Record summary:
Rfam assigns this 81-nucleotide sequence from Sulfitobacter marinus to the family "chrB-a RNA". The family's consensus secondary structure is taken from published work. The family has 163 seed sequences and 347 matches in Rfam 15.1. Lineage of the source: Bacteria > Pseudomonadati > Pseudomonadota > Rhodobacterales > Sulfitobacter.

Nucleotides: 081
Base pairs, nucleotide, nucleotide: 005027006026007025008024009023049077050076051075052074053073054072
Number, partner (000 for none) and nucleotide at each position: 001000u002000u003000c004000a005027u006026g007025g008024g009023g010000a011000u012000u013000u014000c015000c016000g017000c018000g019000a020000a021000c022000g023009c024008c025007c026006c027005g028000u029000g030000a031000g032000g033000c034000g035000c036000c037000a038000g039000c040000c041000a042000g043000a044000a045000g046000u047000u048000c049077g050076c051075a052074u053073g054072u055000u056000u057000c058000c059000g060000c061000u062000a063000u064000g065000a066000a067000a068000g069000g070000a071000u072054g073053c074052a075051u076050g077049c078000u079000a080000u081000g